A member of the RNA family "U4 spliceosomal RNA" from Aspergillus fumigatus, 161 nucleotides long.
Rfam 15.1 lists 32,178 matches to the family in 2,547 species.
The source organism's lineage runs through Eukaryota, Ascomycota, Pezizomycotina, Aspergillus subgen. Fumigati and Aspergillus fumigatus.
Gene Ontology terms of the family: U4 snRNP and spliceosomal tri-snRNP complex assembly.
RNA sequence: AUCCUGGUGCACGGGUUUUACACGUGUCAGUGAGGAGACAUCCGAGACCGUGUUUUUGCUAGUUGAAAACUACCUAGUUGACCGCUUCAGUUGGUCUUCGGAUCGGCUGGGAAUUUUUGAAAAAAAGUUGCCCUGACAUCCUAAGUCUUGGUGUCAGUUUU
Numbered sequence: 001a002u003c004c005u006g007g008u009g010c011a012c013g014g015g016u017u018u019u020a021c022a023c024g025u026g027u028c029a030g031u032g033a034g035g036a037g038a039c040a041u042c043c044g045a046g047a048c049c050g051u052g053u054u055u056u057u058g059c060u061a062g063u064u065g066a067a068a069a070c071u072a073c074c075u076a077g078u079u080g081a082c083c084g085c086u087u088c089a090g091u092u093g094g095u096c097u098u099c100g101g102a103u104c105g106g107c108u109g110g111g112a113a114u115u116u117u118u119g120a121a122a123a124a125a126a127g128u129u130g131c132c133c134u135g136a137c138a139u140c141c142u143a144a145g146u147c148u149u150g151g152u153g154u155c156a157g158u159u160u161u
Stems, first nucleotide, its partner, number of pairs: 020053005026048003034043003086111011124161007